[Rfam]
RNA sequence: AGAAAAAAAAUCGAUAUAUAACACUCAUGUCGAUAAAACGAUUUGAACUCCUU
Numbered sequence: 001a002g003a004a005a006a007a008a009a010a011u012c013g014a015u016a017u018a019u020a021a022c023a024c025u026c027a028u029g030u031c032g033a034u035a036a037a038a039c040g041a042u043u044u045g046a047a048c049u050c051c052u053u
Stems, first nucleotide, its partner, number of pairs: 011033007
The family of this 53-nucleotide RNA from Hibiscus syriacus is "Plastid-atpF group II-D1 intron". Taxonomically the source falls in Hibiscus (Eukaryota, Viridiplantae, Spermatophyta, Mesangiospermae). Rfam 15.1 lists 1,372 matches to the family in 227 species. Rfam describes the family as follows. Plastid atpF is a non-coding RNA (ncRNA) recognised in plastids. A search with the family's covariance model found it, with a score of 56 bits.